[Rfam]
Source information: The family of this 100-nucleotide RNA sequence from Hathewaya proteolytica is "THF (Tetrahydrofolate) riboswitch aptamer". Rfam describes the family as follows. Tetrahydrofolate (THF) riboswitch was first reported for Ames et al. as an RNA motif in 5' untranslated (5'-UTR)regions of folate transport and biosynthesis genes in Firmicutes genomes. Rfam links the family to the GO term tetrahydrofolate metabolic process. The family's consensus secondary structure is taken from published work.
RNA sequence: AGCAGAGUAAAAAUCAAAGCGUCAAGUGCUGUAAAGACGGGGAGUUGCUUUACGGACGAAGAAGUUUACCUUUGCGGUUUUGAUUUUGCAUCCCGCUGCU
Number, nucleotide and partner (000 for none) at each position: 001a100002g099003c098004a097005g096006a000007g000008u000009a000010a087011a086012a085013a084014u083015c082016a081017a080018a079019g078020c076021g075022u074023c000024a000025a000026g057027u056028g000029c055030u054031g053032u052033a051034a050035a049036g048037a000038c000039g000040g093041g092042g091043a000044g089045u000046u000047g000048c036049u035050u034051u033052a032053c031054g030055g029056a027057c026058g000059a000060a000061g073062a072063a071064g070065u000066u000067u000068a000069c000070c064071u063072u062073u061074g022075c021076g020077g000078u019079u018080u017081u016082g015083a014084u013085u012086u011087u010088g000089c044090a000091u042092c041093c040094c000095g000096c005097u004098g003099c002100u001